Aggregatibacter sRNA 20: an 80-nucleotide sequence from Mannheimia haemolytica. By type it is a small RNA. The sequence is in the family's curated seed alignment. Rfam describes the family as follows. Validated by RT-PCR and Northern blot. The source organism's lineage runs through Bacteria, Pseudomonadati, Pseudomonadota, Gammaproteobacteria and Mannheimia haemolytica. For this family Rfam cites "Small RNA repertoires and their intraspecies variation in Aggregatibacter actinomycetemcomitans" (Oogai et al., DNA Res, 2017).
[Rfam]
RNA sequence: AGAAUAAGUGUUGUACCUAGCAACCUAACACAUAAAUUUGCUUUCCGAGUGGCCCCAAGAAUUGGGGCUUUUUUUAUGCU
Numbered sequence: 001a002g003a004a005u006a007a008g009u010g011u012u013g014u015a016c017c018u019a020g021c022a023a024c025c026u027a028a029c030a031c032a033u034a035a036a037u038u039u040g041c042u043u044u045c046c047g048a049g050u051g052g053c054c055c056c057a058a059g060a061a062u063u064g065g066g067g068c069u070u071u072u073u074u075u076a077u078g079c080u
Base pairs, nucleotide, nucleotide: 001075002074003073004072006070007069008068022042024040027037028033053067054066055065056064057063058062
Dot-bracket structure: ((((.(((.............(.(..((....)...)..).)..........((((((...))))))))).)))).....